RNA sequence: AACUGUUCUUUCAACUGAUUUCUGAAAGAACUCAUAGAGUGUGUGUUGUCUUGCAGAAGCUUCUUCUUUCGUAAUUAACGAGACCGUAGUUUAAUAACAGCACCACAUUU
Numbered sequence: 001a002a003c004u005g006u007u008c009u010u011u012c013a014a015c016u017g018a019u020u021u022c023u024g025a026a027a028g029a030a031c032u033c034a035u036a037g038a039g040u041g042u043g044u045g046u047u048g049u050c051u052u053g054c055a056g057a058a059g060c061u062u063c064u065u066c067u068u069u070c071g072u073a074a075u076u077a078a079c080g081a082g083a084c085c086g087u088a089g090u091u092u093a094a095u096a097a098c099a100g101c102a103c104c105a106c107a108u109u110u
Stems, first nucleotide, its partner, number of pairs: 043103006058091004063086001065083004
RNA: Small nucleolar RNA snoR97
Organism: Papaver somniferum